[Rfam]
A member of the RNA family "Purine riboswitch aptamer" from Fervidibacillus halotolerans, 102 nucleotides long. The family's consensus secondary structure is taken from published work. Lineage of the source: Bacteria > Bacillati > Bacilli > Caryophanales > Fervidibacillus. It scores 85 bits against the family's covariance model.

RNA sequence: UAAAAAUACGAAACGCGUUCUCGUAUAAGUUUGGAAAUAAGGUCCAAACGUCUCUACCAAACUACCGGAAAUAGUUUGACUACGGGAGAAUAGCACCACAUC
Numbered sequence: 001u002a003a004a005a006a007u008a009c010g011a012a013a014c015g016c017g018u019u020c021u022c023g024u025a026u027a028a029g030u031u032u033g034g035a036a037a038u039a040a041g042g043u044c045c046a047a048a049c050g051u052c053u054c055u056a057c058c059a060a061a062c063u064a065c066c067g068g069a070a071a072u073a074g075u076u077u078g079a080c081u082a083c084g085g086g087a088g089a090a091u092a093g094c095a096c097c098a099c100a101u102c
Stems, first nucleotide, its partner, number of pairs: 018088008029049007058078007